[Rfam]
RNA: SAH (S-adenosyl-L-homocysteine) riboswitch aptamer
RNA sequence: CGGGUCGAGAGGCGCUGCAACGGACCACGGGUCCGCCACGCUCGACCCGGUAUGUAGUACGGCUGUAAGGGCGCCUCCCAUGA
Numbered sequence: 001c002g003g004g005u006c007g008a009g010a011g012g013c014g015c016u017g018c019a020a021c022g023g024a025c026c027a028c029g030g031g032u033c034c035g036c037c038a039c040g041c042u043c044g045a046c047c048c049g050g051u052a053u054g055u056a057g058u059a060c061g062g063c064u065g066u067a068a069g070g071g072c073g074c075c076u077c078c079c080a081u082g083a
Base pairs, nucleotide, nucleotide: 002048003047004046005045006044007043008042021035022034023033024032025031026030